The family of this 149-nucleotide RNA sequence from Clostridium sp. 7_2_43FAA is "SAM riboswitch aptamer (S box leader)". Rfam links the family to the GO term regulation of gene expression. NCBI's taxonomy places the organism under Bacteria, Bacillati, Bacillota, Eubacteriales, Clostridium. The family's consensus secondary structure is taken from published work.
RNA sequence: UUCUUAUCAAGAGUGGUGGAGGGACUGGCCCUGUGAAACCCAGCAACCUGUAAUAGGAUUAAAUGAUAAGUCUAAUUUGUAUUAGACAAAAUUUUAUUCUUAUUAAGUUUGGUGCUAAAUCCUGCAGCUUUUUAGCUGAUAGAUGAGAG
Numbered sequence: 001u002u003c004u005u006a007u008c009a010a011g012a013g014u015g016g017u018g019g020a021g022g023g024a025c026u027g028g029c030c031c032u033g034u035g036a037a038a039c040c041c042a043g044c045a046a047c048c049u050g051u052a053a054u055a056g057g058a059u060u061a062a063a064u065g066a067u068a069a070g071u072c073u074a075a076u077u078u079g080u081a082u083u084a085g086a087c088a089a090a091a092u093u094u095u096a097u098u099c100u101u102a103u104u105a106a107g108u109u110u111g112g113u114g115c116u117a118a119a120u121c122c123u124g125c126a127g128c129u130u131u132u133u134a135g136c137u138g139a140u141a142g143a144u145g146a147g148a149g
Stems, first nucleotide, its partner, number of pairs: 001149008013041001015040003021031003025124001027122002042116004047112002120141001125138005